[Rfam]
RNA sequence: GUUAAAUCAUUGAGAAGGACACGUCUUUUAUCUAAAUACUGUCAGCGAAUCGGGGACCGGUGUGAGCCCGAUCAGUCAAGGAUAAAAGGUAUCCCCUUUGAGUGUGGAACUGAACCUGUUCAGUAAGUUCCACCGUUUCGCCUCCGUUAUCAGGCUCUUAAGUGGUAAUCCGUUUUUCAGGGUUGCUAGUAGGGUGGUACCGCGAGUUCAAGCCAACUCGUCCCUAUC
Numbered sequence: 001g002u003u004a005a006a007u008c009a010u011u012g013a014g015a016a017g018g019a020c021a022c023g024u025c026u027u028u029u030a031u032c033u034a035a036a037u038a039c040u041g042u043c044a045g046c047g048a049a050u051c052g053g054g055g056a057c058c059g060g061u062g063u064g065a066g067c068c069c070g071a072u073c074a075g076u077c078a079a080g081g082a083u084a085a086a087a088g089g090u091a092u093c094c095c096c097u098u099u100g101a102g103u104g105u106g107g108a109a110c111u112g113a114a115c116c117u118g119u120u121c122a123g124u125a126a127g128u129u130c131c132a133c134c135g136u137u138u139c140g141c142c143u144c145c146g147u148u149a150u151c152a153g154g155c156u157c158u159u160a161a162g163u164g165g166u167a168a169u170c171c172g173u174u175u176u177u178c179a180g181g182g183u184u185g186c187u188a189g190u191a192g193g194g195u196g197g198u199a200c201c202g203c204g205a206g207u208u209c210a211a212g213c214c215a216a217c218u219c220g221u222c223c224c225u226a227u228c
Base pairs, nucleotide, nucleotide: 008102015098016097017096018095025088026087027086028085029084030083038076039075040074049072050071051070052069053068054067105132106131107130108129109128110127111126134146135145165186166185167184168183169182170181171180191225192224193223194222202221203220204219205218206217207216208215
Dot-bracket structure: .......(......((((......((((((.......(((........((((((............)))))).)))......))))))......))))...)..(((((((..............))))))).((.........))..................(((((((........)))))))....((((.......(((((((......)))))))))))...